Shown here is a 56-nucleotide RNA sequence from Synaphobranchus kaupii, a member of the family "UnaL2 LINE 3' element".
For this family Rfam cites "Solution structure of an RNA stem-loop derived from the 3' conserved region of eel LINE UnaL2" (Baba et al., RNA, 2004).
The match comes from Rfam's covariance-model search (56 bits).

[Rfam]
RNA sequence: AUGUAAUAAGUAUGUAUAAGUCACUCUGGAUAAGAGCGUCUGCUAAAUGCCUGUAA
Numbered sequence: 001a002u003g004u005a006a007u008a009a010g011u012a013u014g015u016a017u018a019a020g021u022c023a024c025u026c027u028g029g030a031u032a033a034g035a036g037c038g039u040c041u042g043c044u045a046a047a048u049g050c051c052u053g054u055a056a
Stems, first nucleotide, its partner, number of pairs: 013045001014043003022038001024036004